[Rfam]
RNA sequence: UUUUUAGUAUAAGUAUGUCUCCUGUACUAUUUGGGACAUACUUAUGCUAACA
Numbered sequence: 001u002u003u004u005u006a007g008u009a010u011a012a013g014u015a016u017g018u019c020u021c022c023u024g025u026a027c028u029a030u031u032u033g034g035g036a037c038a039u040a041c042u043u044a045u046g047c048u049a050a051c052a
Stems, first nucleotide, its partner, number of pairs: 006048007014040003018036004
This 52-nucleotide RNA from Equus caballus belongs to the Rfam family "mir-1302 microRNA precursor family". The family has 24 seed sequences and 16,160 matches in Rfam 15.1. A search with the family's covariance model found it, with a score of 63 bits. Pairs were carried over by alignment from the consensus structure, which was predicted with WAR. Taxonomically the source falls in Equus (Eukaryota, Bilateria, Teleostomi, Amniota).